Annotation
A member of the RNA family "mir-210 microRNA precursor family" from Temnothorax curvispinosus, 95 nucleotides long.
RNA sequence: UUGGACCCCAAUGCAGCUGCUGGCCACUGCACAAGAUUAGAGAUAACACUCUUGUGCGUGUGACAGCGACUAUCAUGGGGCUUCCAUACAUCACA
Numbered sequence: 001u002u003g004g005a006c007c008c009c010a011a012u013g014c015a016g017c018u019g020c021u022g023g024c025c026a027c028u029g030c031a032c033a034a035g036a037u038u039a040g041a042g043a044u045a046a047c048a049c050u051c052u053u054g055u056g057c058g059u060g061u062g063a064c065a066g067c068g069a070c071u072a073u074c075a076u077g078g079g080g081c082u083u084c085c086a087u088a089c090a091u092c093a094c095a
Stems, first nucleotide, its partner, number of pairs: 006080005015071002018068005024062001025060002028058006035051002

The family's consensus secondary structure was predicted with WAR. A reference for the family is Chen et al. (2005), "The developmental miRNA profiles of zebrafish as determined by small RNA cloning", Genes Dev. The match comes from Rfam's covariance-model search (76 bits).